[Rfam]
RNA sequence: CUCUGCCUCUCUCUCUGUGUGUCUCUCAUGAAUAAACAUUUUUUAAAAAAUAUUUUCUUUUUUAAAGAUUUUUAUUUAUUUAUUCAUGAGAGACACACACAGAGAGAAGCAGAG
Numbered sequence: 001c002u003c004u005g006c007c008u009c010u011c012u013c014u015c016u017g018u019g020u021g022u023c024u025c026u027c028a029u030g031a032a033u034a035a036a037c038a039u040u041u042u043u044u045a046a047a048a049a050a051u052a053u054u055u056u057c058u059u060u061u062u063u064a065a066a067g068a069u070u071u072u073u074a075u076u077u078a079u080u081u082a083u084u085c086a087u088g089a090g091a092g093a094c095a096c097a098c099a100c101a102g103a104g105a106g107a108a109g110c111a112g113a114g
Base pairs, nucleotide, nucleotide: 001114002113003112004111005110006109008107009106010105011104012103013102014101016099017098018097019096020095021094022093023092024091027088028087029086030085031084032083033082034081035080036079

A member of the RNA family "mir-160 microRNA precursor family" from Vulpes vulpes, 114 nucleotides long.
The literature on the family includes a 2002 paper in Cell by Rhoades et al., "Prediction of plant microRNA targets".
The family has 7 seed sequences and 1,502 matches in Rfam 15.1.
It scores 50 bits against the family's covariance model.